[Rfam]
A member of the RNA family "Ribosomal S15 leader" from Stutzerimonas stutzeri, 117 nucleotides long. Its family is annotated with regulation of translation, ncRNA-mediated in the Gene Ontology. The organism belongs to Stutzerimonas stutzeri, within Bacteria. The match comes from Rfam's covariance-model search (56 bits). A reference for the family is Benard et al. (1996), "Pseudoknot and translational control in the expression of the S15 ribosomal protein", Biochimie. From the family's description: The E. coli Ribosomal S15 gene 5' UTR can form two alternative structures. One that is a series of three hairpins, The other includes a pseudoknot. By type it is a cis-regulatory leader.
RNA sequence: UCAUGCCUCUUUAUUAAACACGGGGUCAAUCCCCGGCCUGUUCACUCAAGGAGCCCUACCAUGGCACUGAGCGUUGAAGAAAAAGCCCAGAUCGUUAACGAGUACAAGCAAGCUGAA
Dot-bracket structure: .......((((..........))))...................(((..((.(...........).)))))..............................................